[Rfam]
RNA sequence: GUUCUUCGCGGUGGCGGCGCCUCGCCAGCCCCGGCUCGCUGGCCGGCAACCCUCCUCCGCGGUGGGGUGCCCCGGGUGAAGACCAGGCCGCGCCGACCGGCGCGGCAAGCGCGGACC
Numbered sequence: 001g002u003u004c005u006u007c008g009c010g011g012u013g014g015c016g017g018c019g020c021c022u023c024g025c026c027a028g029c030c031c032c033g034g035c036u037c038g039c040u041g042g043c044c045g046g047c048a049a050c051c052c053u054c055c056u057c058c059g060c061g062g063u064g065g066g067g068u069g070c071c072c073c074g075g076g077u078g079a080a081g082a083c084c085a086g087g088c089c090g091c092g093c094c095g096a097c098c099g100g101c102g103c104g105g106c107a108a109g110c111g112c113g114g115a116c117c
Base pairs, nucleotide, nucleotide: 001083002082003081008044010043012041013040014039015038027036028035045071046070047069050067051066052065054062055061087106088105089104090103091102092101093100094099
SAM (S-adenosyl methionine) riboswitch aptamer: a 117-nucleotide sequence from Actinopolymorpha pittospori.
For this family Rfam cites "The aptamer core of SAM-IV riboswitches mimics the ligand-binding site of SAM-I riboswitches" (Weinberg et al., RNA, 2008).
The base pairs follow the family's consensus structure, which is taken from published work.
The match comes from Rfam's covariance-model search (63 bits).
Its family is annotated with regulation of gene expression and S-adenosylmethionine metabolic process in the Gene Ontology.